The record is a 62-nucleotide RNA sequence from Stutzerimonas stutzeri, which matches "gabT RNA" in Rfam.
Nucleotides: 062
Base pairs, nucleotide, nucleotide: 001062002061003060004059005058006057014047015046016045017044018043019042020041021040022039023038024037025033026032
Number, partner (000 for none) and nucleotide at each position: 001062g002061a003060a004059c005058g006057c007000u008000c009000c010000g011000g012000a013000u014047g015046g016045u017044g018043c019042g020041g021040c022039a023038g024037u025033c026032g027000a028000u029000c030000a031000u032026c033025g034000u035000a036000u037024g038023c039022u040021g041020c042019c043018g044017c045016g046015c047014c048000c049000g050000c051000u052000u053000c054000c055000u056000g057006g058005c059004g060003u061002u062001c
Rfam classes the family as a cis-regulatory element.